[Rfam]
RNA sequence: AGGUGAAAAUCGUUUUGGACGGGGGUUCGAUUCCCCCCACCUCCACCAAAUGGAGGAAAGGCCAGUCAGUUCCUUUCCCCCAUCUGAUGGGGGUGACCUGGUUUCGACAAGGCGGCAAGUAUCCGGAGACACACCACGUCAGGCGACCGACGUAAAUAGCGCAAAUCCAUAAUUGCAAAUGAUCCGCAAUUCGUUGCUUACGGCACCUAA
Numbered sequence: 001a002g003g004u005g006a007a008a009a010u011c012g013u014u015u016u017g018g019a020c021g022g023g024g025g026u027u028c029g030a031u032u033c034c035c036c037c038c039a040c041c042u043c044c045a046c047c048a049a050a051u052g053g054a055g056g057a058a059a060g061g062c063c064a065g066u067c068a069g070u071u072c073c074u075u076u077c078c079c080c081c082a083u084c085u086g087a088u089g090g091g092g093g094u095g096a097c098c099u100g101g102u103u104u105c106g107a108c109a110a111g112g113c114g115g116c117a118a119g120u121a122u123c124c125g126g127a128g129a130c131a132c133a134c135c136a137c138g139u140c141a142g143g144c145g146a147c148c149g150a151c152g153u154a155a156a157u158a159g160c161g162c163a164a165a166u167c168c169a170u171a172a173u174u175g176c177a178a179a180u181g182a183u184c185c186g187c188a189a190u191u192c193g194u195u196g197c198u199u200a201c202g203g204c205a206c207c208u209a210a
Stems, first nucleotide, its partner, number of pairs: 002123001011114003015110003021037005038095007137152004

The record is a 210-nucleotide RNA from Herbaspirillum chlorophenolicum, which matches "permuted transfer-messenger RNA" in Rfam. The sequence is in the family's curated seed alignment. Rfam classes the family as a non-coding RNA gene. Pairs were carried over by alignment from the consensus structure, which is taken from published work.